[Rfam]
RNA sequence: UCAAACAAUGGUGAUGGAGUUCACCAGAAUCGCAAAUUGCUAAUGACUCCUACAGGUUU
Numbered sequence: 001u002c003a004a005a006c007a008a009u010g011g012u013g014a015u016g017g018a019g020u021u022c023a024c025c026a027g028a029a030u031c032g033c034a035a036a037u038u039g040c041u042a043a044u045g046a047c048u049c050c051u052a053c054a055g056g057u058u059u
Stems, first nucleotide, its partner, number of pairs: 010025004016050006032040002
Shown here is a 59-nucleotide RNA from Proteiniborus ethanoligenes, a member of the family "Fluoride riboswitch aptamer (crcB RNA motif)". The source organism's lineage runs through Bacteria, Bacillati, Bacillota, Clostridia and Proteiniborus. It scores 52 bits against the family's covariance model.